[Rfam]
RNA sequence: CUUCACCGAGCCGAGCAGCAGCGGCUUGUCCUCGUCGCGCUGCUGACCGUAGGUGGCGAGCAGCGCCUGCGCCUC
Numbered sequence: 001c002u003u004c005a006c007c008g009a010g011c012c013g014a015g016c017a018g019c020a021g022c023g024g025c026u027u028g029u030c031c032u033c034g035u036c037g038c039g040c041u042g043c044u045g046a047c048c049g050u051a052g053g054u055g056g057c058g059a060g061c062a063g064c065g066c067c068u069g070c071g072c073c074u075c
Stems, first nucleotide, its partner, number of pairs: 014026003031071001033069001038065002043060002047056003
RNA: ASpks TB sRNA